[Rfam]
RNA: Group II catalytic intron D1-D4-3
Organism: Atopostipes suicloacalis
RNA sequence: UCCACCGCGAGGUGGAAUCCGAAGGAAGUCGGCGGCAAACACUCGCACUGACGAACAGAAACUUCAUAUCAAGGCUGAACAGGGACGGACGAGCUUGCCAAACAAAGUAAAGUCCGAUACUGCACGAAUCCCACACAGUAAAUGAAGCAGUGACAUGAGUGGAAGGUUGUUAUU
Numbered sequence: 001u002c003c004a005c006c007g008c009g010a011g012g013u014g015g016a017a018u019c020c021g022a023a024g025g026a027a028g029u030c031g032g033c034g035g036c037a038a039a040c041a042c043u044c045g046c047a048c049u050g051a052c053g054a055a056c057a058g059a060a061a062c063u064u065c066a067u068a069u070c071a072a073g074g075c076u077g078a079a080c081a082g083g084g085a086c087g088g089a090c091g092a093g094c095u096u097g098c099c100a101a102a103c104a105a106a107g108u109a110a111a112g113u114c115c116g117a118u119a120c121u122g123c124a125c126g127a128a129u130c131c132c133a134c135a136c137a138g139u140a141a142a143u144g145a146a147g148c149a150g151u152g153a154c155a156u157g158a159g160u161g162g163a164a165g166g167u168u169g170u171u172a173u174u
Stems, first nucleotide, its partner, number of pairs: 001016006028174001031171002035167002040161006046152005062147006074139003082132004087115004093108004